[Rfam]
RNA sequence: ACUGACUGUGAUGAUCCAAACAGACCUGUAAUGAUUUUGCGGACGUGAUCGCAGAUCUUUAUGAACAUCUAAGGGACUGAGUCUGU
Dot-bracket structure: .(.(((..........................................................................))).).
Numbered sequence: 001a002c003u004g005a006c007u008g009u010g011a012u013g014a015u016c017c018a019a020a021c022a023g024a025c026c027u028g029u030a031a032u033g034a035u036u037u038u039g040c041g042g043a044c045g046u047g048a049u050c051g052c053a054g055a056u057c058u059u060u061a062u063g064a065a066c067a068u069c070u071a072a073g074g075g076a077c078u079g080a081g082u083c084u085g086u
Stems, first nucleotide, its partner, number of pairs: 002085001004083003